[Rfam]
RNA: SAH (S-adenosyl-L-homocysteine) riboswitch aptamer
RNA sequence: UUCCGAGGAGCGUUGCAGCGUCCCCGUUGUCAGACGGGGCGUGAGGCUCGGAUCCACACCCGCAACGACGCUCGCCCACG
Numbered sequence: 001u002u003c004c005g006a007g008g009a010g011c012g013u014u015g016c017a018g019c020g021u022c023c024c025c026g027u028u029g030u031c032a033g034a035c036g037g038g039g040c041g042u043g044a045g046g047c048u049c050g051g052a053u054c055c056a057c058a059c060c061c062g063c064a065a066c067g068a069c070g071c072u073c074g075c076c077c078a079c080g
Stems, first nucleotide, its partner, number of pairs: 002052005019041006